[Rfam]
This 101-nucleotide RNA sequence belongs to the Rfam family "skipping-rope RNA". Pairs were carried over by alignment from the consensus structure, which is taken from published work.

RNA sequence: UAAGUUAGAGGUUGAAAAGUAUUAAGUUACGCUGUCUCAACACGCUAUACUCGAAAGAGAAGUAAAAAGAAAUGUGGGGGGUGGCAGUCCCACCUAACUUU
Numbered sequence: 001u002a003a004g005u006u007a008g009a010g011g012u013u014g015a016a017a018a019g020u021a022u023u024a025a026g027u028u029a030c031g032c033u034g035u036c037u038c039a040a041c042a043c044g045c046u047a048u049a050c051u052c053g054a055a056a057g058a059g060a061a062g063u064a065a066a067a068a069g070a071a072a073u074g075u076g077g078g079g080g081g082u083g084g085c086a087g088u089c090c091c092a093c094c095u096a097a098c099u100u101u
Stems, first nucleotide, its partner, number of pairs: 002100007011041005032087005043069001050059003074093005